Streptomyces sRNA 4677: a 254-nucleotide sequence from Streptomyces sp. ADI95-17. The family has 12 seed sequences and 563 matches in Rfam 15.1. For this family Rfam cites "Complex intra-operonic dynamics mediated by a small RNA in Streptomyces coelicolor" (Hindra et al., PLoS One, 2014). The family's RNA type in Rfam is small RNA. From the family's description: Located in the intergenic region between anti-sigma factor SCO4677 gene and a putative regulatory protein gene SCO4676. scr4677 expression requires the SCO4677 activity and scr4677 sRNA itself seem to affect the levels of the SCO4676-associated transcripts.
RNA sequence: GGUCGCGGUGCGCAGCGACGUAAAAGCUUUUAAGUCUUUGUCUUGAGGACGUACGAAAAACCCAACCCGACCCAUGUCUUUCACCUGCGGGUCCCUGUCACUCGCGCGGGUGACAUCGGGCAACUCAGCUGGAUUUCGGGGCGGCUUGCGGGCAUAUGCUCACGCCAACACAGCCGCACACGUACGUCGGCCCUCGGCCGGGAGUGAUGAUCCCGAACGAGGGCCUGACCACCUAGGAAGACUCAACCUUCCCG
Dot-bracket structure: ......((((......(..(.............................................................)..)............((((((....))))))..............(.(((...........................)))).........................(((((.((...((((.......))))...)).)))))....))))..(((((.......)))))..